[Rfam]
RNA sequence: UAGUAUGGUAGAGGAGCAUUUUACAUUAGUAAGUAAUUUGAUUUGUUCAGGCAAAAGUGAUAAUUAUUGAAAGGGUAAGGUGCCGAAGAAGAAAAUACCUGUUUUAUUUUCUGUCUGGGUAUAUAGUCAAUAGCUAUAUAACUGUCAUAUAUAUUAUUAUAUAUGGGGUGCUACUUGUGAC
Numbered sequence: 001u002a003g004u005a006u007g008g009u010a011g012a013g014g015a016g017c018a019u020u021u022u023a024c025a026u027u028a029g030u031a032a033g034u035a036a037u038u039u040g041a042u043u044u045g046u047u048c049a050g051g052c053a054a055a056a057g058u059g060a061u062a063a064u065u066a067u068u069g070a071a072a073g074g075g076u077a078a079g080g081u082g083c084c085g086a087a088g089a090a091g092a093a094a095a096u097a098c099c100u101g102u103u104u105u106a107u108u109u110u111c112u113g114u115c116u117g118g119g120u121a122u123a124u125a126g127u128c129a130a131u132a133g134c135u136a137u138a139u140a141a142c143u144g145u146c147a148u149a150u151a152u153a154u155u156a157u158u159a160u161a162u163a164u165g166g167g168g169u170g171c172u173a174c175u176u177g178u179g180a181c
Stems, first nucleotide, its partner, number of pairs: 007175005016083009032068007087116003090112008117143002120140008145166007
A member of the RNA family "Lysine riboswitch aptamer" from Vallitalea guaymasensis, 181 nucleotides long.
Lineage of the source: Bacteria > Bacillota > Clostridia > Vallitaleaceae > Vallitalea.
It scores 114 bits against the family's covariance model.
The family's consensus secondary structure is taken from published work.